[Rfam]
About this RNA
TPP riboswitch aptamer (THI element): a 100-nucleotide sequence from Ahrensia marina. Vitamin B(1) in its active form thiamin pyrophosphate (TPP) is an essential coenzyme that is synthesised by coupling of pyrimidine and thiazole moieties in bacteria. The previously detected thiamin-regulatory element, thi box was extended, resulting in a new, highly conserved RNA secondary structure, the THI element, which is widely distributed in eubacteria and also occurs in some archaea. Taxonomically the source falls in Ahrensia (Bacteria, Pseudomonadota, Alphaproteobacteria, Hyphomicrobiales).
RNA sequence: CUUUAUCCGUCGGGGGGCCCAUUGGGCUGAGAGGUGCUUGCACCGACCCGUCGAACCUGAUCCGGGCAAUGCCGGCGUAGGGAACGGGUAAUUCGCAUAG
Number, nucleotide and partner (000 for none) at each position: 001c000002u000003u000004u000005a000006u088007c087008c086009g085010u084011c050012g049013g048014g047015g000016g044017g027018c026019c025020c024021a000022u000023u000024g020025g019026g018027c017028u000029g000030a000031g000032a000033g000034g043035u042036g041037c000038u000039u000040g000041c036042a035043c034044c016045g000046a000047c014048c013049c012050g011051u000052c000053g000054a000055a000056c081057c080058u079059g078060a000061u000062c075063c074064g073065g072066g000067c000068a000069a000070u000071g000072c065073c064074g063075g062076c000077g000078u059079a058080g057081g056082g000083a000084a010085c009086g008087g007088g006089u000090a000091a000092u000093u000094c000095g000096c000097a000098u000099a000100g000